Rfam assigns this 148-nucleotide RNA from Brucella anthropi to the family "Group II catalytic intron D1-D4-4". Pairs were carried over by alignment from the consensus structure.
RNA sequence: CAGUGGAGGAAGGAUCCCCCCAGAUAAUUGUCUAUAGGUCUGGUAGUUAACAAGCGGCUUGCCGGGCAACCGGUCGGGCUGAAGCCUCGUGACAAAGGCCGCCAUGGGCGGUCGAGCUAUGCCACCUGGAGGCCCUUGGGUAUUGGAA
Numbered sequence: 001c002a003g004u005g006g007a008g009g010a011a012g013g014a015u016c017c018c019c020c021c022a023g024a025u026a027a028u029u030g031u032c033u034a035u036a037g038g039u040c041u042g043g044u045a046g047u048u049a050a051c052a053a054g055c056g057g058c059u060u061g062c063c064g065g066g067c068a069a070c071c072g073g074u075c076g077g078g079c080u081g082a083a084g085c086c087u088c089g090u091g092a093c094a095a096a097g098g099c100c101g102c103c104a105u106g107g108g109c110g111g112u113c114g115a116g117c118u119a120u121g122c123c124a125c126c127u128g129g130a131g132g133c134c135c136u137u138g139g140g141u142a143u144u145g146g147a148a
Base pairs, nucleotide, nucleotide: 020043021042022041023040024039050090051089053087054086055081056080057079058078059077060076064071065070097113098112099111100110101109102108116141117140118139
For this family Rfam cites "Group II introns: structure and catalytic versatility of large natural ribozymes" (Lehmann and Schmidt, Crit Rev Biochem Mol Biol, 2003).